[Rfam]
RNA sequence: AUAGAAGAAACGUUUAAAAAUUCAUAGCGACGUCCUGUCGCAAAGCUACAUGACUCACAUCCUGUGAG
Numbered sequence: 001a002u003a004g005a006a007g008a009a010a011c012g013u014u015u016a017a018a019a020a021u022u023c024a025u026a027g028c029g030a031c032g033u034c035c036u037g038u039c040g041c042a043a044a045g046c047u048a049c050a051u052g053a054c055u056c057a058c059a060u061c062c063u064g065u066g067a068g
Stems, first nucleotide, its partner, number of pairs: 012049002027041005054068005
RNA: Bacillaceae-1 RNA